RNA sequence: CAUAGUAGCAGCGAUAGUCGGGUGAGAAUCUCGACGGCCUAACGGACAAGGGUUCCUCAGCAAUGUUUGUCAGCUGAGGGUUAGCCGGUCCUAAGUGAUGUCGCAAUUCGAGCAUCACAAAAGGGGAGCUGGUUAAUAUUCCAGCGCUUCCGUACAACGAACGCUGACGCCUCGGGGUCGCCGGAGCCGAGCUUUCGCUCGGUCGAAUCGUCCAAAUCCGUGGAAGCCGUAAUGGCACGAAGCGGAUGAACGGCGAGACAGUGCAAAUCCGGUCAACCUGGGGCCCGUGAAAAAGCAAGUACGGAAUCCGUACCAAGAACCGACACAGGUGUCCGUGGCGGAGAAAGCCAAGGCCUGU
Numbered sequence: 001c002a003u004a005g006u007a008g009c010a011g012c013g014a015u016a017g018u019c020g021g022g023u024g025a026g027a028a029u030c031u032c033g034a035c036g037g038c039c040u041a042a043c044g045g046a047c048a049a050g051g052g053u054u055c056c057u058c059a060g061c062a063a064u065g066u067u068u069g070u071c072a073g074c075u076g077a078g079g080g081u082u083a084g085c086c087g088g089u090c091c092u093a094a095g096u097g098a099u100g101u102c103g104c105a106a107u108u109c110g111a112g113c114a115u116c117a118c119a120a121a122a123g124g125g126g127a128g129c130u131g132g133u134u135a136a137u138a139u140u141c142c143a144g145c146g147c148u149u150c151c152g153u154a155c156a157a158c159g160a161a162c163g164c165u166g167a168c169g170c171c172u173c174g175g176g177g178u179c180g181c182c183g184g185a186g187c188c189g190a191g192c193u194u195u196c197g198c199u200c201g202g203u204c205g206a207a208u209c210g211u212c213c214a215a216a217u218c219c220g221u222g223g224a225a226g227c228c229g230u231a232a233u234g235g236c237a238c239g240a241a242g243c244g245g246a247u248g249a250a251c252g253g254c255g256a257g258a259c260a261g262u263g264c265a266a267a268u269c270c271g272g273u274c275a276a277c278c279u280g281g282g283g284c285c286c287g288u289g290a291a292a293a294a295g296c297a298a299g300u301a302c303g304g305a306a307u308c309c310g311u312a313c314c315a316a317g318a319a320c321c322g323a324c325a326c327a328g329g330u331g332u333c334c335g336u337g338g339c340g341g342a343g344a345a346a347g348c349c350a351a352g353g354c355c356u357g358u
Stems, first nucleotide, its partner, number of pairs: 017035006036355004044334004050314002055079006064072002086310003090124002095118006101111003128145005148306008163296003169284008180273005186203005208256004217246005226236003262267001320329002336350004

Rfam assigns this 358-nucleotide part of an RNA from Halomarina oriensis to the family "Archaeal large subunit ribosomal RNA". The source organism's lineage runs through Archaea, Methanobacteriota, Halobacteria, Natronomonadaceae and Halomarina. Gene Ontology terms of the family: structural constituent of ribosome and ribosome.